[Rfam]
A member of the RNA family "Y RNA" from Tauraco erythrolophus, 96 nucleotides long.
Y RNAs are components of the Ro ribonucleoprotein particle (Ro RNP), in association with Ro60 and La proteins.
The family's consensus secondary structure is taken from published work.
The organism belongs to Tauraco, within Eukaryota.

RNA sequence: GGCUGGUCCGAUGGUAGUGGGUUAACAGAAAUUAUUACUGUUAGUUAAACUGACCUUUCUAUAUUCCACCCCACUGCUAACCUUGACUGGUCUUUU
Dot-bracket structure: ((((((((.((...(((((((.....((.((........................)).)).........))))))...)...))))))))))....